[Rfam]
RNA: Small nucleolar RNA snoR8a
RNA sequence: AAGGUUGCAAUGAUAAUAAAAAAUUCCUCGUACUGAAUGCUUAUGUAUAUUUGCAUGACAGACUCUUCUAUACACCCAUAGAAUCUGAGCAACU
Number, nucleotide and partner (000 for none) at each position: 001a000002a000003g094004g093005u000006u091007g090008c000009a000010a000011u000012g000013a000014u000015a000016a000017u000018a000019a000020a000021a000022a000023a000024u000025u000026c000027c000028u000029c000030g000031u000032a000033c000034u000035g000036a000037a000038u000039g000040c000041u000042u000043a000044u000045g000046u000047a000048u000049a000050u000051u000052u000053g000054c000055a000056u000057g000058a000059c000060a000061g000062a000063c000064u000065c000066u000067u000068c000069u000070a000071u000072a000073c000074a000075c000076c000077c000078a000079u000080a000081g000082a000083a000084u000085c000086u000087g000088a000089g000090c007091a006092a000093c004094u003